This 298-nucleotide sequence from Acanthosepion pharaonis belongs to the Rfam family "Metazoan signal recognition particle RNA". Pairs were carried over by alignment from the consensus structure, which is taken from published work. The signal recognition particle (SRP) is a universally conserved ribonucleoprotein. It is annotated as a non-coding RNA gene. The match comes from Rfam's covariance-model search (248 bits). Gene Ontology terms of the family: signal recognition particle, endoplasmic reticulum targeting and SRP-dependent cotranslational protein targeting to membrane, signal sequence recognition.
[Rfam]
RNA sequence: GCUGGGAGUGAUGGCGUGCUCCUGUAAUCCAGCUACUUGGAAGCUUGUUCGGGUGAACGGUUUGAGAACGGGGUCCCUGGUCUGCGAUCCUCUAUGGCGAUCGGACGUCCGCACUAAGCCUGGCAUUAAUAUGGUUAGUUUGAGUGACCUCGAAUUGACCAGGUUAACUAAGGAGGGGCGACUCGGUCCAGGGCGGAAACGCAGCAGACAAAAGACCCCGUGUCAGGCAGUAGUGGGAUCGCGCCUGUGAAUAGUGGUCGUAUACCAGCUCGUUCAAUAGAACCGAACCCCGAACUUU
Numbered sequence: 001g002c003u004g005g006g007a008g009u010g011a012u013g014g015c016g017u018g019c020u021c022c023u024g025u026a027a028u029c030c031a032g033c034u035a036c037u038u039g040g041a042a043g044c045u046u047g048u049u050c051g052g053g054u055g056a057a058c059g060g061u062u063u064g065a066g067a068a069c070g071g072g073g074u075c076c077c078u079g080g081u082c083u084g085c086g087a088u089c090c091u092c093u094a095u096g097g098c099g100a101u102c103g104g105a106c107g108u109c110c111g112c113a114c115u116a117a118g119c120c121u122g123g124c125a126u127u128a129a130u131a132u133g134g135u136u137a138g139u140u141u142g143a144g145u146g147a148c149c150u151c152g153a154a155u156u157g158a159c160c161a162g163g164u165u166a167a168c169u170a171a172g173g174a175g176g177g178g179c180g181a182c183u184c185g186g187u188c189c190a191g192g193g194c195g196g197a198a199a200c201g202c203a204g205c206a207g208a209c210a211a212a213a214g215a216c217c218c219c220g221u222g223u224c225a226g227g228c229a230g231u232a233g234u235g236g237g238a239u240c241g242c243g244c245c246u247g248u249g250a251a252u253a254g255u256g257g258u259c260g261u262a263u264a265c266c267a268g269c270u271c272g273u274u275c276a277a278u279a280g281a282a283c284c285g286a287a288c289c290c291c292g293a294a295c296u297u298u
Stems, first nucleotide, its partner, number of pairs: 001044003004023007028041003047295007058285006066275007077268005083262007092254004102247003106243003109237002112235005118228009127166004132161013168172001175218003179214001186209003193202003
Dot-bracket structure: ((((((((((......)))))))....(((........))))))..(((((((....((((((..(((((((....(((((.(((((((..((((......(((.(((((.(((((.(((((((((((((.(((((((((((((....))))))))))))).)))).(...)..(((.(......(((....(((....)))....)))....).))).)))))))))..)))))))...))).)))...)))).))))))).))))))))))))....))))))...)))))))...